RNA sequence: CUUAUGUUUCAGGGAAGGUGCAAUUCCUUACUGGCGGUAGCUGGACAUCUCCAGGAGCCCGCGACCCGCGCAAGCGGUUGAUAUCGGUCAAAUGCCGAAGCCAACGGUUACAGUCCGGAUGAAAGAAACGAGUC
Numbered sequence: 001c002u003u004a005u006g007u008u009u010c011a012g013g014g015a016a017g018g019u020g021c022a023a024u025u026c027c028u029u030a031c032u033g034g035c036g037g038u039a040g041c042u043g044g045a046c047a048u049c050u051c052c053a054g055g056a057g058c059c060c061g062c063g064a065c066c067c068g069c070g071c072a073a074g075c076g077g078u079u080g081a082u083a084u085c086g087g088u089c090a091a092a093u094g095c096c097g098a099a100g101c102c103a104a105c106g107g108u109u110a111c112a113g114u115c116c117g118g119a120u121g122a123a124a125g126a127a128a129c130g131a132g133u134c
Stems, first nucleotide, its partner, number of pairs: 003132001005130006016028003030114002032103002034062004057101002066077002082099001084098004105117003
The record is a 134-nucleotide sequence from Bombiscardovia coagulans, which matches "FMN riboswitch aptamer (RFN element)" in Rfam.
Pairs were carried over by alignment from the consensus structure, which is taken from published work.
The RFN element is a highly conserved domain that is found frequently in the 5'-untranslated regions of prokaryotic mRNAs that encode for flavin mononucleotide (FMN) biosynthesis and transport proteins.